[Rfam]
RNA sequence: GGUGAAGUCACUGGAGGCAGCGGUUUAUCGAUCUCUUCUUGAAUUUUGUUAACACAAACCAUGAAUCGAUCGAUAAACCUCUGCAUCCAGCGCUCACUUU
Numbered sequence: 001g002g003u004g005a006a007g008u009c010a011c012u013g014g015a016g017g018c019a020g021c022g023g024u025u026u027a028u029c030g031a032u033c034u035c036u037u038c039u040u041g042a043a044u045u046u047u048g049u050u051a052a053c054a055c056a057a058a059c060c061a062u063g064a065a066u067c068g069a070u071c072g073a074u075a076a077a078c079c080u081c082u083g084c085a086u087c088c089a090g091c092g093c094u095c096a097c098u099u100u
Base pairs, nucleotide, nucleotide: 013088014087015086018083019082020081022079023078024077025076027074028073029072030071031070032069033068036065037064038063

Shown here is a 100-nucleotide RNA from Lupinus albus, a member of the family "MIR162_1 microRNA precursor family". NCBI's taxonomy places the organism under Eukaryota, eudicotyledons, rosids, Genisteae, Lupinus. The literature on the family includes a 2002 paper in Genes Dev by Reinhart et al., "MicroRNAs in plants". Gene Ontology terms of the family: miRNA-mediated post-transcriptional gene silencing and RISC complex.